[Rfam]
RNA sequence: ACAGUUAAAAAAGUAUUCACUCAUAUAAUCGCGGGAAUAUGGCCUGCAAGUUUCUACCAAGCUACCUUAAAUAGCUUGACUAUGUGUGAGCAAUGGGUAAAU
Numbered sequence: 001a002c003a004g005u006u007a008a009a010a011a012a013g014u015a016u017u018c019a020c021u022c023a024u025a026u027a028a029u030c031g032c033g034g035g036a037a038u039a040u041g042g043c044c045u046g047c048a049a050g051u052u053u054c055u056a057c058c059a060a061g062c063u064a065c066c067u068u069a070a071a072u073a074g075c076u077u078g079a080c081u082a083u084g085u086g087u088g089a090g091c092a093a094u095g096g097g098u099a100a101a102u
Base pairs, nucleotide, nucleotide: 018088019087020086022084023083024082025081029049031047032046033045034044035043058078059077060076061075062074063073064072

The record is a 102-nucleotide RNA sequence from Heyndrickxia sporothermodurans, which matches "Purine riboswitch aptamer" in Rfam. A search with the family's covariance model found it, with a score of 89 bits. NCBI's taxonomy places the organism under Bacteria, Bacillati, Bacilli, Caryophanales, Heyndrickxia.